This 95-nucleotide RNA from Scaptodrosophila lebanonensis belongs to the Rfam family "mir-288 microRNA precursor family". On this family, see Clark et al., Nature 2007: "Evolution of genes and genomes on the Drosophila phylogeny". Taxonomically the source falls in Scaptodrosophila (Eukaryota, Eumetabola, Eremoneura, Ephydroidea).
Nucleotides: 095
Base pairs, nucleotide, nucleotide: 001094002093003092007089008088011085016082017081019079021077022076028071029070032065033064034063035062036061037060038059047058048057049056050055
Number, partner (000 for none) and nucleotide at each position: 001094g002093g003092c004000c005000g006000c007089g008088u009000a010000a011085u012000u013000a014000g015000c016082a017081g018000c019079g020000c021077g022076a023000c024000g025000u026000u027000u028071c029070a030000g031000u032065g033064c034063u035062g036061g037060c038059g039000a040000u041000a042000a043000u044000u045000a046000a047058u048057g049056a050055c051000g052000u053000u054000g055050g056049u057048c058047a059038c060037g061036u062035u063034g064033g065032u066000u067000u068000c069000a070029u071028g072000u073000c074000g075000a076022u077021u078000u079019c080000a081017u082016u083000u084000c085011a086000g087000g088008a089007c090000a091000u092003g093002c094001c095000g